Overview
The record is an 80-nucleotide RNA from Rhodoluna lacicola, which matches "ZMP/ZTP riboswitch aptamer (pfl RNA motif)" in Rfam. For this family Rfam cites "Parallel Discovery Strategies Provide a Basis for Riboswitch Ligand Design" (Tran et al., Cell Chem Biol, 2020). The source organism's lineage runs through Bacteria, Actinomycetota, Actinomycetes, Micrococcales and Rhodoluna.
[Rfam]
RNA sequence: UUUACACAUCGCAACUGGCGCUAAAGAUGGGUUUCCAUCGUGGAGCGAAGACAUUUUGGUCGUGCGCCUGGGCCAAGACU
Numbered sequence: 001u002u003u004a005c006a007c008a009u010c011g012c013a014a015c016u017g018g019c020g021c022u023a024a025a026g027a028u029g030g031g032u033u034u035c036c037a038u039c040g041u042g043g044a045g046c047g048a049a050g051a052c053a054u055u056u057u058g059g060u061c062g063u064g065c066g067c068c069u070g071g072g073c074c075a076a077g078a079c080u
Base pairs, nucleotide, nucleotide: 007050009048010047011046012045015042017068018067019066020065021064027038028037029036030035057075058074059073060072061071
The match comes from Rfam's covariance-model search (50 bits).